Notes
Rfam assigns this 366-nucleotide RNA from Methylophilus medardicus to the family "Bacterial RNase P class A". A search with the family's covariance model found it, with a score of 225 bits. The source organism's lineage runs through Bacteria, Pseudomonadati, Betaproteobacteria, Methylophilaceae and Methylophilus.

[Rfam]
RNA sequence: GAAGCCAACCAGACAGUCGCCGCCUGUGCAAACAGGGGGAGGAAAGUCCGGGCUGCACAGAGCGGGAUGACGGCUAACGGCCGUACGCUGAAAGCUGGUAACAGUAUAAGGUGAGGAAUAGGGCCACAGAGACGAGUCGGUUCGACCAGUGAGCAACUUGUUGCGAACUUGCGUCGAAACGGGUGAAACGCGGUAACCUCCAUCUGCAGCAAUAUCAAAUAGGCUGGCAUUUUACGCAAGUAAUAAGGCGUGGCUCGCGCUGCCAGCGGGUAGAUAGCUUGAGCGUGUGAGCAAUUGCACGCCUAGAUGAAUGACUGUCAGUCACGCAAGUGAUUACAGAACCCGGCUUACCGGUUGGCUUUAUUU
Numbered sequence: 001g002a003a004g005c006c007a008a009c010c011a012g013a014c015a016g017u018c019g020c021c022g023c024c025u026g027u028g029c030a031a032a033c034a035g036g037g038g039g040a041g042g043a044a045a046g047u048c049c050g051g052g053c054u055g056c057a058c059a060g061a062g063c064g065g066g067a068u069g070a071c072g073g074c075u076a077a078c079g080g081c082c083g084u085a086c087g088c089u090g091a092a093a094g095c096u097g098g099u100a101a102c103a104g105u106a107u108a109a110g111g112u113g114a115g116g117a118a119u120a121g122g123g124c125c126a127c128a129g130a131g132a133c134g135a136g137u138c139g140g141u142u143c144g145a146c147c148a149g150u151g152a153g154c155a156a157c158u159u160g161u162u163g164c165g166a167a168c169u170u171g172c173g174u175c176g177a178a179a180c181g182g183g184u185g186a187a188a189c190g191c192g193g194u195a196a197c198c199u200c201c202a203u204c205u206g207c208a209g210c211a212a213u214a215u216c217a218a219a220u221a222g223g224c225u226g227g228c229a230u231u232u233u234a235c236g237c238a239a240g241u242a243a244u245a246a247g248g249c250g251u252g253g254c255u256c257g258c259g260c261u262g263c264c265a266g267c268g269g270g271u272a273g274a275u276a277g278c279u280u281g282a283g284c285g286u287g288u289g290a291g292c293a294a295u296u297g298c299a300c301g302c303c304u305a306g307a308u309g310a311a312u313g314a315c316u317g318u319c320a321g322u323c324a325c326g327c328a329a330g331u332g333a334u335u336a337c338a339g340a341a342c343c344c345g346g347c348u349u350a351c352c353g354g355u356u357g358g359c360u361u362u363a364u365u366u
Base pairs, nucleotide, nucleotide: 001362002361003360004359005358006357007356008355009354010353012319013318014317015316016315017314018313020039021038023036024035025034026033027032044349045348046347048346049345050344051343052342053209054208055207056206060256061255062254063253065205066204067203068202069201070084071083072082073081074080086113087112088111089110116200117199121198122197123194124193125192138182141178142177143176144175145174146173213276214275215274216273223267224266225265226264227263228262247261248260249259250258251257283302284301285300286299287298288297289296290295